[Rfam]
Overview:
mir-3492 microRNA precursor family: a 78-nucleotide RNA from Schistosoma margrebowiei. The family's consensus secondary structure was predicted with RNAalifold.
RNA sequence: AGCUUUUCGAAUCCGUGCUGAGGUUUCGUCACACACCAUUCCAUUUGGGCUGAUUAAACUCCCAAGAUAAGUGAGGUU
Numbered sequence: 001a002g003c004u005u006u007u008c009g010a011a012u013c014c015g016u017g018c019u020g021a022g023g024u025u026u027c028g029u030c031a032c033a034c035a036c037c038a039u040u041c042c043a044u045u046u047g048g049g050c051u052g053a054u055u056a057a058a059c060u061c062c063c064a065a066g067a068u069a070a071g072u073g074a075g076g077u078u
Stems, first nucleotide, its partner, number of pairs: 002077005008071001011068003016064002020061003024058003028054003